[Rfam]
RNA sequence: GCCCCGAGUUGUAUGGAAGACUAGUGAUUUUGUUGUUUUAUUGAAUUAACAAGGAAUCACUAAUCUCCCUACAAAGCGGUGGC
Numbered sequence: 001g002c003c004c005c006g007a008g009u010u011g012u013a014u015g016g017a018a019g020a021c022u023a024g025u026g027a028u029u030u031u032g033u034u035g036u037u038u039u040a041u042u043g044a045a046u047u048a049a050c051a052a053g054g055a056a057u058c059a060c061u062a063a064u065c066u067c068c069c070u071a072c073a074a075a076g077c078g079g080u081g082g083c
Stems, first nucleotide, its partner, number of pairs: 002082002005079001006077001009074005015068002018066003024060007033052005
This 83-nucleotide sequence from Plutella xylostella belongs to the Rfam family "mir-7 microRNA precursor family". About the family: This family represents the microRNA (miRNA) precursor mir-7. Lineage of the source: Eukaryota > Protostomia > Aparaglossata > Plutellidae > Plutella. Rfam 15.1 lists 2,589 matches to the family in 797 species.